RNA sequence: CUGACCAGGCAAAACGAUCGCUGGGUUUUAAACCUGGAGGAAAGUCCGAACACCACAGGACAGGACGCUCCAUAACGUGGAGUCGCGGUGACGUGAAGGAAAGUGCAACAGAGAGUAGACCGCCCGGAUGGAAUUUGAUCCGGGUAAGGGUGAAACGGUGCGGUAAGAGCGCACCAGUUUUCCAGGUGACUGGAAAAGCUUGGUAAACCCCGUCCGGUGCAAGGCCAAAUAGGGAAACGCUUGAGGGUUGUCCGCCCAAGUUUUCGGGUAGGUCGCGUGAGGUGUGCGGUAACGUACAUCCCAGAUGAAUGAUCGUUGACCUGUUCUACGGUAACGAGAACAGGUAACAGAAUUCGGCUUAUCAACUGGUCAGGCCG
Numbered sequence: 001c002u003g004a005c006c007a008g009g010c011a012a013a014a015c016g017a018u019c020g021c022u023g024g025g026u027u028u029u030a031a032a033c034c035u036g037g038a039g040g041a042a043a044g045u046c047c048g049a050a051c052a053c054c055a056c057a058g059g060a061c062a063g064g065a066c067g068c069u070c071c072a073u074a075a076c077g078u079g080g081a082g083u084c085g086c087g088g089u090g091a092c093g094u095g096a097a098g099g100a101a102a103g104u105g106c107a108a109c110a111g112a113g114a115g116u117a118g119a120c121c122g123c124c125c126g127g128a129u130g131g132a133a134u135u136u137g138a139u140c141c142g143g144g145u146a147a148g149g150g151u152g153a154a155a156c157g158g159u160g161c162g163g164u165a166a167g168a169g170c171g172c173a174c175c176a177g178u179u180u181u182c183c184a185g186g187u188g189a190c191u192g193g194a195a196a197a198g199c200u201u202g203g204u205a206a207a208c209c210c211c212g213u214c215c216g217g218u219g220c221a222a223g224g225c226c227a228a229a230u231a232g233g234g235a236a237a238c239g240c241u242u243g244a245g246g247g248u249u250g251u252c253c254g255c256c257c258a259a260g261u262u263u264u265c266g267g268g269u270a271g272g273u274c275g276c277g278u279g280a281g282g283u284g285u286g287c288g289g290u291a292a293c294g295u296a297c298a299u300c301c302c303a304g305a306u307g308a309a310u311g312a313u314c315g316u317u318g319a320c321c322u323g324u325u326c327u328a329c330g331g332u333a334a335c336g337a338g339a340a341c342a343g344g345u346a347a348c349a350g351a352a353u354u355c356g357g358c359u360u361a362u363c364a365a366c367u368g369g370u371c372a373g374g375c376c377g
Stems, first nucleotide, its partner, number of pairs: 001373008011362001013317007021037007042360003046357005051219004058253004063215005068082005083097001084095004098210002103208002105204002120149002122145008157175006177199001178197008223274004233265006245257004281300008
RNA: Bacterial RNase P class A